Source information:
The record is a 136-nucleotide RNA, which matches "Bacteriophage Diversity-Generating Retroelement RNA" in Rfam. The family's RNA type in Rfam is small RNA.
RNA sequence: GCUCUGCCAACGCUACGGCUUGGCAGGCCGACCUUUCGGUUAUCGAAGGUGGUCAGCCGGUUUUGUCCUGCUUCGGCAAACACGUUUCACGGUUCGGUAGAGCGCUGAUUACUGAGAAUGGAAAGGCGCGGCCGAC
Numbered sequence: 001g002c003u004c005u006g007c008c009a010a011c012g013c014u015a016c017g018g019c020u021u022g023g024c025a026g027g028c029c030g031a032c033c034u035u036u037c038g039g040u041u042a043u044c045g046a047a048g049g050u051g052g053u054c055a056g057c058c059g060g061u062u063u064u065g066u067c068c069u070g071c072u073u074c075g076g077c078a079a080a081c082a083c084g085u086u087u088c089a090c091g092g093u094u095c096g097g098u099a100g101a102g103c104g105c106u107g108a109u110u111a112c113u114g115a116g117a118a119u120g121g122a123a124a125g126g127c128g129c130g131g132c133c134g135a136c
Stems, first nucleotide, its partner, number of pairs: 001028002004026007012019002069078003092136001094135005103128004112120001